[Rfam]
A member of the RNA family "Purine riboswitch aptamer" from Paenibacillus sedimenti, 100 nucleotides long. Pairs were carried over by alignment from the consensus structure, which is taken from published work.

RNA sequence: GGGAAUUGAAUACAACCUUUUCGUAUAACCUUAAUGAUUGGAUUAAGGGUCUCUACUUAGAAACCGUAAAUUUCUAGCUACGAAAAAUGUGUCUCCGGCA
Number, nucleotide and partner (000 for none) at each position: 001g000002g000003g000004a000005a000006u000007u000008g000009a000010a000011u000012a000013c000014a000015a000016c000017c000018u086019u085020u084021u083022c082023g081024u080025a079026u000027a000028a000029c048030c047031u046032u045033a044034a043035u042036g000037a000038u000039u000040g000041g000042a035043u034044u033045a032046a031047g030048g029049g000050u000051c000052u000053c000054u000055a000056c000057u077058u076059a075060g074061a073062a072063a071064c000065c000066g000067u000068a000069a000070a000071u063072u062073u061074c060075u059076a058077g057078c000079u025080a024081c023082g022083a021084a020085a019086a018087a000088u000089g000090u000091g000092u000093c000094u000095c000096c000097g000098g000099c000100a000